The family of this 75-nucleotide RNA sequence from Parnassius apollo is "Mammalian CPEB3 ribozyme". Lineage of the source: Eukaryota > Altocrustacea > Pterygota > Amphiesmenoptera > Parnassius. Rfam describes the family as follows. The mammalian CPEB3 ribozyme is a self cleaving RNA located in the second intron of the CPEB3 gene which belongs to a family of genes regulating messenger RNA polyadenylation.
[Rfam]
RNA sequence: UUAAAUUUUGAGGGGCAUUGUAGAAGCGUGCUCGUCGCGAACCCUGCCAGCCCUUUUCAGGGCUGCAAUUCUACA
Number, nucleotide and partner (000 for none) at each position: 001u000002u000003a000004a000005a000006u000007u000008u000009u000010g000011a000012g000013g044014g043015g042016c039017a000018u000019u075020g074021u073022a072023g071024a070025a069026g038027c037028g036029u000030g000031c000032u000033c000034g000035u000036c028037g027038c026039g016040a000041a000042c015043c014044c013045u000046g000047c000048c065049a064050g063051c062052c061053c060054u059055u000056u000057u000058c000059a054060g053061g052062g051063c050064u049065g048066c000067a000068a000069u025070u024071c023072u022073a021074c020075a019